[Rfam]
RNA sequence: GGCUGCAACACAGGACAUGGGAGCUGUCUCUCACUCCCGCUCGUGUCUUGUGUUGCAGCCAGU
Numbered sequence: 001g002g003c004u005g006c007a008a009c010a011c012a013g014g015a016c017a018u019g020g021g022a023g024c025u026g027u028c029u030c031u032c033a034c035u036c037c038c039g040c041u042c043g044u045g046u047c048u049u050g051u052g053u054u055g056c057a058g059c060c061a062g063u
Stems, first nucleotide, its partner, number of pairs: 001060004006055011018043004

Rfam assigns this 63-nucleotide RNA from Ictalurus punctatus to the family "mir-187 microRNA precursor family". Rfam 15.1 lists 636 matches to the family in 622 species. The literature on the family includes a 2003 paper in Science by Lim et al., "Vertebrate microRNA genes". Gene Ontology terms of the family: miRNA-mediated post-transcriptional gene silencing and RISC complex.